[Rfam]
RNA sequence: AGCAGGGAGUAUCCCGGCCAAAAAAGAGUGAGCCGGCAGCGCCUGUAGCGCGGCCGGCAAUC
Numbered sequence: 001a002g003c004a005g006g007g008a009g010u011a012u013c014c015c016g017g018c019c020a021a022a023a024a025a026g027a028g029u030g031a032g033c034c035g036g037c038a039g040c041g042c043c044u045g046u047a048g049c050g051c052g053g054c055c056g057g058c059a060a061u062c
Stems, first nucleotide, its partner, number of pairs: 032058006039051004